[Rfam]
RNA sequence: CGAGCCGGAGCGGGAGAGUCCUCAGGUCAGCACUGGGGCGCCGAAGGAGCAACUUCCCCGCCAAUCUCUCAGGUACCAGUUACCGCUCCGCGCCA
Numbered sequence: 001c002g003a004g005c006c007g008g009a010g011c012g013g014g015a016g017a018g019u020c021c022u023c024a025g026g027u028c029a030g031c032a033c034u035g036g037g038g039c040g041c042c043g044a045a046g047g048a049g050c051a052a053c054u055u056c057c058c059c060g061c062c063a064a065u066c067u068c069u070c071a072g073g074u075a076c077c078a079g080u081u082a083c084c085g086c087u088c089c090g091c092g093c094c095a
Base pairs, nucleotide, nucleotide: 006090007089008088009087010086011085012084013083020038021037022036023035024034025033040074041073042072043070044069047068048067049066054060
Dot-bracket structure: .....((((((((......((((((.......)))))).(((((..(((....(.....).....))))).)))........)))))))).....
Description
Shown here is a 95-nucleotide RNA from Amycolatopsis methanolica, a member of the family "Glycine riboswitch aptamer". Clan: Glycine riboswitch clan. Taxonomically the source falls in Amycolatopsis methanolica (Bacteria, Bacillati, Actinomycetota, Pseudonocardiales). A search with the family's covariance model found it, with a score of 56 bits.